[Rfam]
RNA sequence: ACAACAACAAUAACAAGCAGCACAUAAAAUAAUAAAAAUAAGAUUCAUCGGCUCCAGCCCAAUAAAAACAAUAACGCGGAGGCGCAGCUAACUGAUUCUUUUGGAAAGGAUGUGUGUUUGGGGUUCGCCCCGAAACCGGGCAGAGAACAAUAAAACUGCACUAAUGCAGCGCCAGAACCGGUUGGAUCACUCUGUGAUCAAUGCAAUAUCAGCGUCCAAAGCAAUCCGUUUGCUCCUGAUUCCCAACUUGGGAAUUUUUAUAAACAUCCUUGACCGGAUGGAACGGGUAACCAAACAAAAACAACAAGCCCGAAAUAACAAUAAAAAAAGAGCACGCACCAAUUUGGGGGGGAGCUUCGGCUCCCCCAGUAGCUUCCAGAAUCUCCCCUCCUGCAGCACUCUC
Numbered sequence: 001a002c003a004a005c006a007a008c009a010a011u012a013a014c015a016a017g018c019a020g021c022a023c024a025u026a027a028a029a030u031a032a033u034a035a036a037a038a039u040a041a042g043a044u045u046c047a048u049c050g051g052c053u054c055c056a057g058c059c060c061a062a063u064a065a066a067a068a069c070a071a072u073a074a075c076g077c078g079g080a081g082g083c084g085c086a087g088c089u090a091a092c093u094g095a096u097u098c099u100u101u102u103g104g105a106a107a108g109g110a111u112g113u114g115u116g117u118u119u120g121g122g123g124u125u126c127g128c129c130c131c132g133a134a135a136c137c138g139g140g141c142a143g144a145g146a147a148c149a150a151u152a153a154a155a156c157u158g159c160a161c162u163a164a165u166g167c168a169g170c171g172c173c174a175g176a177a178c179c180g181g182u183u184g185g186a187u188c189a190c191u192c193u194g195u196g197a198u199c200a201a202u203g204c205a206a207u208a209u210c211a212g213c214g215u216c217c218a219a220a221g222c223a224a225u226c227c228g229u230u231u232g233c234u235c236c237u238g239a240u241u242c243c244c245a246a247c248u249u250g251g252g253a254a255u256u257u258u259u260a261u262a263a264a265c266a267u268c269c270u271u272g273a274c275c276g277g278a279u280g281g282a283a284c285g286g287g288u289a290a291c292c293a294a295a296c297a298a299a300a301a302c303a304a305c306a307a308g309c310c311c312g313a314a315a316u317a318a319c320a321a322u323a324a325a326a327a328a329a330g331a332g333c334a335c336g337c338a339c340c341a342a343u344u345u346g347g348g349g350g351g352g353a354g355c356u357u358c359g360g361c362u363c364c365c366c367c368a369g370u371a372g373c374u375u376c377c378a379g380a381a382u383c384u385c386c387c388c389u390c391c392u393g394c395a396g397c398a399c400u401c402u403c
Stems, first nucleotide, its partner, number of pairs: 049084002052081004099221005113214003134183006156169005239255005280384003285311004330375004347370001348367008
This 403-nucleotide RNA sequence from Pseudomonas sp. TTU2014-080ASC belongs to the Rfam family "Pseudomonas sRNA CrcZ". The family has 19 seed sequences and 127 matches in Rfam 15.1. Pairs were carried over by alignment from the consensus structure, which was predicted with WAR. Rfam classes the family as a small RNA. For this family Rfam cites "Small RNA as global regulator of carbon catabolite repression in Pseudomonas aeruginosa" (Sonnleitner et al., Proc Natl Acad Sci U S A, 2009).